[Rfam]
RNA sequence: GCCUGAAUGCACUGUAAGUCGCUUUGGAUAAAAGUGUCUGCUAAAUGUAAAAAA
Number, nucleotide and partner (000 for none) at each position: 001g000002c000003c000004u000005g000006a000007a000008u000009g000010c000011a000012c000013u043014g041015u040016a039017a000018g000019u000020c036021g035022c034023u033024u032025u031026g000027g000028a000029u000030a000031a025032a024033a023034g022035u021036g020037u000038c000039u016040g015041c014042u000043a013044a000045a000046u000047g000048u000049a000050a000051a000052a000053a000054a000